Overview
The record is a 148-nucleotide RNA from Mesorhizobium sp. LSHC420B00, which matches "speF leader" in Rfam.
[Rfam]
RNA sequence: UGCCGGUCGUCCAAAGACCGGGGUUACUGAAGAGGCACACCUUCAUUGCCGGCAGUGCGGACGGGGUCUCCCAUCCAAGCCAAGGCAGACAAAGCGAACCGAGGCCGGGCAAGGCCAAGGUUCACCGCCGCGAGACGGCGCUUCAUGG
Numbered sequence: 001u002g003c004c005g006g007u008c009g010u011c012c013a014a015a016g017a018c019c020g021g022g023g024u025u026a027c028u029g030a031a032g033a034g035g036c037a038c039a040c041c042u043u044c045a046u047u048g049c050c051g052g053c054a055g056u057g058c059g060g061a062c063g064g065g066g067u068c069u070c071c072c073a074u075c076c077a078a079g080c081c082a083a084g085g086c087a088g089a090c091a092a093a094g095c096g097a098a099c100c101g102a103g104g105c106c107g108g109g110c111a112a113g114g115c116c117a118a119g120g121u122u123c124a125c126c127g128c129c130g131c132g133a134g135a136c137g138g139c140g141c142u143u144c145a146u147g148g
Base pairs, nucleotide, nucleotide: 001023003021004020005019006018007017008016034050035049036048037047057141058140059139080088097122098121099120100119
A reference for the family is Corbino et al. (2005), "Evidence for a second class of S-adenosylmethionine riboswitches and other regulatory RNA motifs in alpha-proteobacteria", Genome Biol.